[Rfam]
The record is a 126-nucleotide RNA sequence from Streptomyces indicus, which matches "Streptomyces RNA 3920" in Rfam.
RNA sequence: GAUAGGUCGCUGUCGCUACCGUGAUUGGACACUGACACAGAGUCAACUAGCCUUGUUUCCGGCGGUUCUUGGCGCGUAGAACCGGAACGGUCCGAGCCACGAGGGGGGAGGCUCGGGCCGUUCGUU
Numbered sequence: 001g002a003u004a005g006g007u008c009g010c011u012g013u014c015g016c017u018a019c020c021g022u023g024a025u026u027g028g029a030c031a032c033u034g035a036c037a038c039a040g041a042g043u044c045a046a047c048u049a050g051c052c053u054u055g056u057u058u059c060c061g062g063c064g065g066u067u068c069u070u071g072g073c074g075c076g077u078a079g080a081a082c083c084g085g086a087a088c089g090g091u092c093c094g095a096g097c098c099a100c101g102a103g104g105g106g107g108g109a110g111g112c113u114c115g116g117g118c119c120g121u122u123c124g125u126u
Stems, first nucleotide, its partner, number of pairs: 001014005015051004021032003033045004058076001060074002063072001065070001077084001086122013100107001
A reference for the family is Vockenhuber et al. (2011), "Deep sequencing-based identification of small non-coding RNAs in Streptomyces coelicolor", RNA Biol. The source organism's lineage runs through Bacteria, Bacillati, Kitasatosporales, Streptomycetaceae and Streptomyces. Rfam classes the family as a small RNA. Identified by deep sequencing of transcriptome at the end of exponential growth phase. The base pairs follow the family's consensus structure.